[Rfam]
This 85-nucleotide RNA sequence from Pectobacterium carotovorum belongs to the Rfam family "KDPG-aldolase RNA". By type it is a small RNA.
RNA sequence: GGUGCGGUUGGCAUCUGCGGCGACGCAGAUCCCUGUGGCAGGGGCGCGCUAUAUAAUUAAUGAUGCCUUCGGGCAUGACUGGAGA
Numbered sequence: 001g002g003u004g005c006g007g008u009u010g011g012c013a014u015c016u017g018c019g020g021c022g023a024c025g026c027a028g029a030u031c032c033c034u035g036u037g038g039c040a041g042g043g044g045c046g047c048g049c050u051a052u053a054u055a056a057u058u059a060a061u062g063a064u065g066c067c068u069u070c071g072g073g074c075a076u077g078a079c080u081g082g083a084g085a
Stems, first nucleotide, its partner, number of pairs: 001050006013030007063076005
Taxonomically the source falls in Pectobacterium carotovorum subsp. carotovorum (Bacteria, Pseudomonadati, Pseudomonadota, Gammaproteobacteria). The sequence is in the family's curated seed alignment.